[Rfam]
RNA sequence: UCGUCAGUGCGGUACAUCCUGACCUGCCCCGCCCACUGCGGGCAGCACGUGAUGAGCGCGACGCGAUGACGCAAGUGAUUACGUCACGCCGGCGGCGCGGGCGUCGCAACAAAGCCCGCGCUGCUCGAGACUCUGAU
Numbered sequence: 001u002c003g004u005c006a007g008u009g010c011g012g013u014a015c016a017u018c019c020u021g022a023c024c025u026g027c028c029c030c031g032c033c034c035a036c037u038g039c040g041g042g043c044a045g046c047a048c049g050u051g052a053u054g055a056g057c058g059c060g061a062c063g064c065g066a067u068g069a070c071g072c073a074a075g076u077g078a079u080u081a082c083g084u085c086a087c088g089c090c091g092g093c094g095g096c097g098c099g100g101g102c103g104u105c106g107c108a109a110c111a112a113a114g115c116c117c118g119c120g121c122u123g124c125u126c127g128a129g130a131c132u133c134u135g136a137u
Stems, first nucleotide, its partner, number of pairs: 024045003028042005070088002074084001076081001092124011
RNA: U8 small nucleolar RNA